Rfam assigns this 100-nucleotide sequence from Marinobacter lutaoensis to the family "Guanidine-I riboswitch aptamer".
NCBI's taxonomy places the organism under Bacteria, Pseudomonadati, Gammaproteobacteria, Marinobacteraceae, Marinobacter.
RNA sequence: CAUAUGGUCAACUAGGGUUCCGGCCCGUGCCCACGGGUGCCUGGUCCGAGAGUUGACGGCCUUUUCCAAGGCUACACGGCGGGACAAAAGCCCGGGAGGA
Numbered sequence: 001c002a003u004a005u006g007g008u009c010a011a012c013u014a015g016g017g018u019u020c021c022g023g024c025c026c027g028u029g030c031c032c033a034c035g036g037g038u039g040c041c042u043g044g045u046c047c048g049a050g051a052g053u054u055g056a057c058g059g060c061c062u063u064u065u066c067c068a069a070g071g072c073u074a075c076a077c078g079g080c081g082g083g084a085c086a087a088a089a090g091c092c093c094g095g096g097a098g099g100a
Base pairs, nucleotide, nucleotide: 007057008056009055010054011053012052015047016046020044021043022041023038024037025036026035027034028033058073059072060071061070062069063068075095077098081093082092083091